[Rfam]
RNA: L31-Gammaproteobacteria ribosomal protein leader
RNA sequence: CACGCGGUGUCAGUCCUUGAACUUGAUAGCGGCGUGGCUUCAAAUCGAGGU
Numbered sequence: 001c002a003c004g005c006g007g008u009g010u011c012a013g014u015c016c017u018u019g020a021a022c023u024u025g026a027u028a029g030c031g032g033c034g035u036g037g038c039u040u041c042a043a044a045u046c047g048a049g050g051u
Base pairs, nucleotide, nucleotide: 001036002035003034004033005032007030008029011025012024013023